[Rfam]
RNA sequence: AGGCAAGAUUUAGACUGCAAUAUAGAUGUUAAGUGCUAUGUUGUUAUUCUCCUUGCUCAAAAUAAAAUUUUUUCUUUACUCUACCUGUCUGCUAUGGUCUUGUAGUGGCCAGGCAUAUGCUUGAUUUCAUACAU
Numbered sequence: 001a002g003g004c005a006a007g008a009u010u011u012a013g014a015c016u017g018c019a020a021u022a023u024a025g026a027u028g029u030u031a032a033g034u035g036c037u038a039u040g041u042u043g044u045u046a047u048u049c050u051c052c053u054u055g056c057u058c059a060a061a062a063u064a065a066a067a068u069u070u071u072u073u074c075u076u077u078a079c080u081c082u083a084c085c086u087g088u089c090u091g092c093u094a095u096g097g098u099c100u101u102g103u104a105g106u107g108g109c110c111a112g113g114c115a116u117a118u119g120c121u122u123g124a125u126u127u128c129a130u131a132c133a134u
Stems, first nucleotide, its partner, number of pairs: 003056005017044009084113004089108004

Small nucleolar RNA SNORA63: a 134-nucleotide RNA from Pteropus alecto. For this family Rfam cites "Three small nucleolar RNAs that are involved in ribosomal RNA precursor processing" (Mishra and Eliceiri, Proc Natl Acad Sci U S A, 1997). E3 belongs to the H/ACA class of snoRNAs and is involved in the processing of eukaryotic pre-rRNA and has regions of complementarity to 18S rRNA. E3 is encoded in introns in the gene for protein synthesis initiation factor 4AII. The organism belongs to Pteropus, within Eukaryota. It is annotated as an H/ACA-box small nucleolar RNA. The match comes from Rfam's covariance-model search (103 bits).